Rfam assigns this 72-nucleotide RNA to the family "L13-Bacteroidia ribosomal protein leader". On this family, see Eckert and Weinberg, BMC Microbiol 2020: "Discovery of 20 novel ribosomal leader candidates in bacteria and archaea".
RNA sequence: GUGCCUCAAAAGAGUCACGGCCGCGUGUUAAUAGCCGAGUUUCAUUGGCCGAAAAUCGGUGGUUAGUGAAUC
Numbered sequence: 001g002u003g004c005c006u007c008a009a010a011a012g013a014g015u016c017a018c019g020g021c022c023g024c025g026u027g028u029u030a031a032u033a034g035c036c037g038a039g040u041u042u043c044a045u046u047g048g049c050c051g052a053a054a055a056u057c058g059g060u061g062g063u064u065a066g067u068g069a070a071u072c
Base pairs, nucleotide, nucleotide: 001018002017003016005014006013028066029065030064031063032062034060035059036058037057038056040054041053042052
Notes:
It is annotated as a cis-regulatory leader. Rfam's curators put it in the seed alignment.